[Rfam]
A member of the RNA family "TPP riboswitch aptamer (THI element)" from Pontibacter sp. SGAir0037, 108 nucleotides long. A search with the family's covariance model found it, with a score of 68 bits. Vitamin B(1) in its active form thiamin pyrophosphate (TPP) is an essential coenzyme that is synthesised by coupling of pyrimidine and thiazole moieties in bacteria.

Nucleotides: 108
Stems, first nucleotide, its partner, number of pairs: 006096005011058004016052001017045012064089003071082003
Number, partner (000 for none) and nucleotide at each position: 001000c002000a003000a004000a005000c006096a007095c008094u009093u010092u011058a012057g013056g014055g015000g016052u017045g018044u019043u020042c021041u022040g023039c024038g025037c026036u027035u028034g029000a030000c031000g032000c033000a034028u035027a036026a037025g038024c039023g040022c041021a042020g043019a044018a045017c046000u047000g048000a049000g050000a051000a052016a053000u054000a055014c056013c057012c058011u059000c060000u061000g062000a063000a064089c065088c066087u067000g068000a069000u070000a071082c072081a073080g074000u075000u076000a077000g078000c079000a080073c081072u082071g083000a084000c085000g086000a087066a088065g089064g090000g091000a092010a093009a094008a095007g096006u097000a098000u099000a100000u101000g102000a103000u104000a105000a106000a107000c108000a